[Rfam]
The record is a 97-nucleotide RNA sequence from Litorivivens lipolytica, which matches "Bacterial small signal recognition particle RNA" in Rfam.
Rfam classes the family as a non-coding RNA gene.
It scores 72 bits against the family's covariance model.
RNA sequence: AUCCGGUCCCCUCGCAACGAUAGAUGGUAAACCCCGCCAGGCCCGGAAGGGAGCAACGGUAGCCGUCGACUCGUGUGCCGGGGUGUGGCUGGUUGGG
Numbered sequence: 001a002u003c004c005g006g007u008c009c010c011c012u013c014g015c016a017a018c019g020a021u022a023g024a025u026g027g028u029a030a031a032c033c034c035c036g037c038c039a040g041g042c043c044c045g046g047a048a049g050g051g052a053g054c055a056a057c058g059g060u061a062g063c064c065g066u067c068g069a070c071u072c073g074u075g076u077g078c079c080g081g082g083g084u085g086u087g088g089c090u091g092g093u094u095g096g097g
Stems, first nucleotide, its partner, number of pairs: 004091005010083005015075001017074004023067006034059003042051003